[Rfam]
RNA: 6S / SsrS RNA
RNA sequence: GUACUCCUGCCGUGUUCGCGAUUGCCAUAUAUUCCUUGAACCAUUUACGAGCAUAGGUUGUGGGACCGUUCGAUGGGCGUGAGCGUCGCUAGACCGAUGAACCCGAAAUUGAACUACUGCAGCCAACUUGAACCUGUAAGGUUCAGGAUGCCGGCACAGCGGCACAGGCGGGGCUUAA
Dot-bracket structure: ..(.(((((((((((.(((.............(((.((((((.............(((.((((.(..(((((((....(....(((((......)))))...)....)))))))).)))).)))...............)))))))))..........))))))).))))))).)...